[Rfam]
RNA sequence: UUCUUAUCUAGAGAGACGGAGGGACUUGGCCCUAUGAUGUCCGGCAACCUAAAUUUAUUUAACGGUGCUAAUUCCAGCAGAUUGUAUAUCUGAAAGAUGAGAG
Numbered sequence: 001u002u003c004u005u006a007u008c009u010a011g012a013g014a015g016a017c018g019g020a021g022g023g024a025c026u027u028g029g030c031c032c033u034a035u036g037a038u039g040u041c042c043g044g045c046a047a048c049c050u051a052a053a054u055u056u057a058u059u060u061a062a063c064g065g066u067g068c069u070a071a072u073u074c075c076a077g078c079a080g081a082u083u084g085u086a087u088a089u090c091u092g093a094a095a096g097a098u099g100a101g102a103g
Base pairs, nucleotide, nucleotide: 001103002102003101004100005099006098007097008096013042015041016040017039021032022031023030026077027076028075029074043069044068045067046066048065049064050061051060052059053058073095078092079091080090081089082088
Dot-bracket structure: ((((((((....(.(((...(((..[[[[)))......))))((((.((((((....))))..))))))...(]]]](((((.....)))))..)))))))))